[Rfam]
RNA sequence: CUCGGUCCUCGGUAGUGGUCACCGGGAUCAGACCCCGAUGACUUCGAUCGAAGACCGGC
Numbered sequence: 001c002u003c004g005g006u007c008c009u010c011g012g013u014a015g016u017g018g019u020c021a022c023c024g025g026g027a028u029c030a031g032a033c034c035c036c037g038a039u040g041a042c043u044u045c046g047a048u049c050g051a052a053g054a055c056c057g058g059c
Stems, first nucleotide, its partner, number of pairs: 002058006009051005017043005023037004028032001
RNA: Actino-pnp RNA